This 97-nucleotide RNA belongs to the Rfam family "DUF3800-V RNA".

RNA sequence: AAAUGAGCGGUAAGUCCGCUACAGGCUGUUCUAAGUGUUCCCUUCCGUAGGUUGGCUAGAGCUUAGACGCAACAAGCUUGUAGGGCACGCUCAUUUU
Numbered sequence: 001a002a003a004u005g006a007g008c009g010g011u012a013a014g015u016c017c018g019c020u021a022c023a024g025g026c027u028g029u030u031c032u033a034a035g036u037g038u039u040c041c042c043u044u045c046c047g048u049a050g051g052u053u054g055g056c057u058a059g060a061g062c063u064u065a066g067a068c069g070c071a072a073c074a075a076g077c078u079u080g081u082a083g084g085g086c087a088c089g090c091u092c093a094u095u096u097u
Stems, first nucleotide, its partner, number of pairs: 001096005007090002022080006029074001030067007041055002045051002